A member of the RNA family "Mammalian CPEB3 ribozyme" from Alligator sinensis, 76 nucleotides long. The source organism's lineage runs through Eukaryota, Tetrapoda, Amniota, Alligatorinae and Alligator. The family's consensus secondary structure is taken from published work. It scores 40 bits against the family's covariance model.
RNA sequence: UAAAUUCUGUUUGAGGCUACAGCAGAAAUGCUCAUGGUGCAGCCCUGUCAGAUUCCAUGGAUCUGCAAUUUCUGCU
Number, nucleotide and partner (000 for none) at each position: 001u000002a000003a000004a000005u000006u000007c000008u000009g000010u000011u000012u000013g045014a000015g044016g043017c042018u041019a000020c000021a076022g075023c074024a073025g072026a071027a070028a000029u039030g038031c000032u000033c000034a000035u000036g000037g000038u030039g029040c000041a018042g017043c016044c015045c013046u000047g000048u000049c065050a064051g063052a062053u061054u060055c059056c000057a000058u000059g055060g054061a053062u052063c051064u050065g049066c000067a000068a000069u000070u027071u026072c025073u024074g023075c022076u021